This 53-nucleotide sequence from Phreatobacter aquaticus belongs to the Rfam family "ffh sRNA". It is annotated as a small RNA.

[Rfam]
RNA sequence: GAUCCCGGAGGCUCUCGCCCGACAGCGCUGAUGCGCCCUCGGGCGCGAAACGC
Numbered sequence: 001g002a003u004c005c006c007g008g009a010g011g012c013u014c015u016c017g018c019c020c021g022a023c024a025g026c027g028c029u030g031a032u033g034c035g036c037c038c039u040c041g042g043g044c045g046c047g048a049a050a051c052g053c
Stems, first nucleotide, its partner, number of pairs: 016045007025036004